The family of this 80-nucleotide RNA sequence from Rhodopila globiformis is "Group II catalytic intron D1-D4-1".
RNA sequence: GAAGGUGGUCAGCGAUGGCCUCCGACGGGCUUGGAGGAGUCAGCCGAGGCCAUAGUACUCCAGACCAUCGGGGGAAGGGC
Numbered sequence: 001g002a003a004g005g006u007g008g009u010c011a012g013c014g015a016u017g018g019c020c021u022c023c024g025a026c027g028g029g030c031u032u033g034g035a036g037g038a039g040u041c042a043g044c045c046g047a048g049g050c051c052a053u054a055g056u057a058c059u060c061c062a063g064a065c066c067a068u069c070g071g072g073g074g075a076a077g078g079g080c
Stems, first nucleotide, its partner, number of pairs: 001026001004023002007020005040047002049080003058073004
The base pairs follow the family's consensus structure.